[Rfam]
RNA: SAM riboswitch aptamer (S box leader)
Organism: Lentibacillus cibarius
RNA sequence: UUCUUAUCAAGAGAGGUGGAGGGACUGGCCCUUGGAAGCCUCGGCAGCGGACUUUUUAAUAAGUACUGUGCCAAAUCCAGCGAGCAAGUAGCUUGAAAGAUAAGAA
Number, nucleotide and partner (000 for none) at each position: 001u106002u105003c104004u103005u102006a101007u100008c099009a000010a000011g000012a000013g042014a041015g040016g039017u038018g000019g000020a000021g031022g030023g029024a000025c080026u079027g078028g077029c023030c022031c021032u000033u000034g000035g000036a000037a000038g017039c016040c015041u014042c013043g072044g071045c070046a069047g000048c068049g067050g000051a064052c063053u062054u061055u000056u000057u000058a000059a000060u000061a054062a053063g052064u051065a000066c000067u049068g048069u046070g045071c044072c043073a000074a000075a000076u098077c028078c027079a026080g025081c095082g094083a093084g092085c091086a000087a000088g000089u000090a000091g085092c084093u083094u082095g081096a000097a000098a076099g008100a007101u006102a005103a004104g003105a002106a001